[Rfam]
RNA sequence: CUUGUCAAAAGGCAAAUUUUACGAAAGUAAAAGACGCAAAGCCACGGACCUAAGAUAGCAGCAACUAUUAUGGCCGCCGGGCUGCCAAG
Numbered sequence: 001c002u003u004g005u006c007a008a009a010a011g012g013c014a015a016a017u018u019u020u021a022c023g024a025a026a027g028u029a030a031a032a033g034a035c036g037c038a039a040a041g042c043c044a045c046g047g048a049c050c051u052a053a054g055a056u057a058g059c060a061g062c063a064a065c066u067a068u069u070a071u072g073g074c075c076g077c078c079g080g081g082c083u084g085c086c087a088a089g
Stems, first nucleotide, its partner, number of pairs: 012037002017032006040083004045079003049073002055068004
The family of this 89-nucleotide RNA sequence from Niallia taxi is "c-di-GMP-I riboswitch aptamer". Rfam describes the family as follows. GEMM was predicted in a large-scale screen for bacterial structured RNA regulatory elements. Pairs were carried over by alignment from the consensus structure, which is taken from published work. The source organism's lineage runs through Bacteria, Bacillati, Bacillota, Caryophanales and Niallia.